[Rfam]
The family of this 48-nucleotide sequence from Sagittula marina is "SAM/SAH riboswitch aptamer". Taxonomically the source falls in Sagittula (Bacteria, Alphaproteobacteria, Rhodobacterales, Roseobacteraceae). The literature on the family includes a 2019 paper in Nucleic Acids Res by Weickhmann et al., "The structure of the SAM/SAH-binding riboswitch". The base pairs follow the family's consensus structure, which is taken from published work. A search with the family's covariance model found it, with a score of 62 bits.

RNA sequence: UCUCCGUCACAACGGCUUCCUGGCGUGACGGUAAACACCAAUGGAGCA
Numbered sequence: 001u002c003u004c005c006g007u008c009a010c011a012a013c014g015g016c017u018u019c020c021u022g023g024c025g026u027g028a029c030g031g032u033a034a035a036c037a038c039c040a041a042u043g044g045a046g047c048a
Stems, first nucleotide, its partner, number of pairs: 004031007013022002015047003019044002